Shown here is a 64-nucleotide RNA from Drosophila varians, a member of the family "Nanos 3' UTR translation control element".
RNA sequence: AGGAUUUGAAGCUCUGGCAGCUUCUGCAGCGCUUAUAUAGUCAGAAAUAUAUAUUCGCGUUCGA
Numbered sequence: 001a002g003g004a005u006u007u008g009a010a011g012c013u014c015u016g017g018c019a020g021c022u023u024c025u026g027c028a029g030c031g032c033u034u035a036u037a038u039a040g041u042c043a044g045a046a047a048u049a050u051a052u053a054u055u056c057g058c059g060u061u062c063g064a
Base pairs, nucleotide, nucleotide: 003062004061008024009023010022011021012020013019029058030057031056034053035052036051037050038049039048

The Nanos protein in Drosophila is required for correct anterior/posterior patterning in the Drosophila embryo. Translation of the nanos mRNA is repressed in the bulk cytoplasm and activated in the posterior region. Repression is mediated by a translation control element (TCE) in the 3' UTR of the mRNA. This element forms a Y-shaped structure, part of which is recognised by the Smaug protein leading to translational repression. The base pairs follow the family's consensus structure, which is taken from published work. The source organism's lineage runs through Eukaryota, Opisthokonta, Pancrustacea, Hexapoda and Sophophora. Its family is annotated with negative regulation of translation, anterior/posterior axis specification, embryo and protein binding in the Gene Ontology. By type it is a cis-regulatory element.